[Rfam]
RNA sequence: CGUAUGGUGUCUGGCAAAUUGUUUGACCAGAUAGCGAUACGGCCUAACGAGGU
Numbered sequence: 001c002g003u004a005u006g007g008u009g010u011c012u013g014g015c016a017a018a019u020u021g022u023u024u025g026a027c028c029a030g031a032u033a034g035c036g037a038u039a040c041g042g043c044c045u046a047a048c049g050a051g052g053u
Stems, first nucleotide, its partner, number of pairs: 001041005007035002011030004015025004
RNA: L31-Gammaproteobacteria ribosomal protein leader